Rfam assigns this 78-nucleotide sequence from Peromyscus maniculatus to the family "mir-3473 microRNA precursor family". The organism belongs to Peromyscus maniculatus, within Eukaryota. The family has 5 seed sequences and 1,094 matches in Rfam 15.1. The family's consensus secondary structure was predicted with RNAalifold.

[Rfam]
RNA sequence: ACCUCUGAGCCAUCUCUCCAGCCCCAUAAAUAUAAUUUAAAAAAUAUUUUGAAAGGGCUGGAGAGAUGGCUCAGCUGU
Numbered sequence: 001a002c003c004u005c006u007g008a009g010c011c012a013u014c015u016c017u018c019c020a021g022c023c024c025c026a027u028a029a030a031u032a033u034a035a036u037u038u039a040a041a042a043a044a045u046a047u048u049u050u051g052a053a054a055g056g057g058c059u060g061g062a063g064a065g066a067u068g069g070c071u072c073a074g075c076u077g078u
Base pairs, nucleotide, nucleotide: 002077005074006073007072008071009070010069011068012067013066014065015064016063017062018061019060020059021058022057023056024055